[Rfam]
RNA: MIR408 microRNA precursor family
Organism: Panicum miliaceum
RNA sequence: AGGUGGUUUGGAUUGGAGACAGGGAUGAGGCAGAGCAUGGGAUGGGGCCAUCAACAAAAAACCCCGUUUCUUCCACUGCGAAAACAUGUCUGUUCGCUUGCCUGCGAAAUAGGGAAGGGAGUUGUGAGAGGUUCUUCAUCAGGCACAGAAAUGGUUGAGAGCUCCGCUGGUGUUGUUGCUCCCUCCCCUGCACUGCCUCUUCCCUGGCUCCCCCAUCAUAGCCGCCC
Numbered sequence: 001a002g003g004u005g006g007u008u009u010g011g012a013u014u015g016g017a018g019a020c021a022g023g024g025a026u027g028a029g030g031c032a033g034a035g036c037a038u039g040g041g042a043u044g045g046g047g048c049c050a051u052c053a054a055c056a057a058a059a060a061a062c063c064c065c066g067u068u069u070c071u072u073c074c075a076c077u078g079c080g081a082a083a084a085c086a087u088g089u090c091u092g093u094u095c096g097c098u099u100g101c102c103u104g105c106g107a108a109a110u111a112g113g114g115a116a117g118g119g120a121g122u123u124g125u126g127a128g129a130g131g132u133u134c135u136u137c138a139u140c141a142g143g144c145a146c147a148g149a150a151a152u153g154g155u156u157g158a159g160a161g162c163u164c165c166g167c168u169g170g171u172g173u174u175g176u177u178g179c180u181c182c183c184u185c186c187c188c189u190g191c192a193c194u195g196c197c198u199c200u201u202c203c204c205u206g207g208c209u210c211c212c213c214c215a216u217c218a219u220a221g222c223c224g225c226c227c
Base pairs, nucleotide, nucleotide: 016210017209018208020206021205022204023203024202025201028198029197030196031195032194033193035191036190037189039187041186045181046180047179048178